[Rfam]
RNA sequence: CCGGUUCCGGUUCACGCCCGAGCCCGGCGCGCACCACGCGUCGGGGCCGCACGGCGACCCGGCGACC
Numbered sequence: 001c002c003g004g005u006u007c008c009g010g011u012u013c014a015c016g017c018c019c020g021a022g023c024c025c026g027g028c029g030c031g032c033a034c035c036a037c038g039c040g041u042c043g044g045g046g047c048c049g050c051a052c053g054g055c056g057a058c059c060c061g062g063c064g065a066c067c
Stems, first nucleotide, its partner, number of pairs: 003067003007062004015056004020052001022050002
RNA: L31-Actinobacteria ribosomal protein leader
Organism: Micromonospora sp. MW-13